A member of the RNA family "Small nucleolar RNA snoR109" from Papaver nudicaule, 86 nucleotides long.
Gene Ontology terms of the family: RNA processing and nucleolus.
The family has 6 seed sequences and 680 matches in Rfam 15.1.
By type it is an H/ACA-box small nucleolar RNA.
A search with the family's covariance model found it, with a score of 56 bits.
Lineage of the source: Eukaryota > Viridiplantae > Spermatophyta > Ranunculales > Papaver.
The base pairs follow the family's consensus structure, which was predicted with WAR.

[Rfam]
RNA sequence: UUGCCAAAGUAAUCCAAAAACAAGAAGUUUACUGGCCGGUUGUUGCUUUUAAUUGACACAUCUGCUUUACCGAACUUCUAACAUUU
Numbered sequence: 001u002u003g004c005c006a007a008a009g010u011a012a013u014c015c016a017a018a019a020a021c022a023a024g025a026a027g028u029u030u031a032c033u034g035g036c037c038g039g040u041u042g043u044u045g046c047u048u049u050u051a052a053u054u055g056a057c058a059c060a061u062c063u064g065c066u067u068u069a070c071c072g073a074a075c076u077u078c079u080a081a082c083a084u085u086u
Stems, first nucleotide, its partner, number of pairs: 023079007034066003038062003042057004